[Rfam]
RNA sequence: GGCUGGUCGGAAGGGAGUGAGUUAUCUCAAUUGAUUGUUCACAGUCACAGAUCAAACUCCUUCUUCUAUUCCCCCCACUUCUCACUGCUGCGCUUGACUAGUCUGAA
Numbered sequence: 001g002g003c004u005g006g007u008c009g010g011a012a013g014g015g016a017g018u019g020a021g022u023u024a025u026c027u028c029a030a031u032u033g034a035u036u037g038u039u040c041a042c043a044g045u046c047a048c049a050g051a052u053c054a055a056a057c058u059c060c061u062u063c064u065u066c067u068a069u070u071c072c073c074c075c076c077a078c079u080u081c082u083c084a085c086u087g088c089u090g091c092g093c094u095u096g097a098c099u100a101g102u103c104u105g106a107a
Stems, first nucleotide, its partner, number of pairs: 001103008010095002014091001016086006044065001
Rfam assigns this 107-nucleotide RNA from Piliocolobus tephrosceles to the family "Y RNA". Lineage of the source: Eukaryota > Bilateria > Chordata > Simiiformes > Piliocolobus. By type it is a non-coding RNA gene. Pairs were carried over by alignment from the consensus structure, which is taken from published work.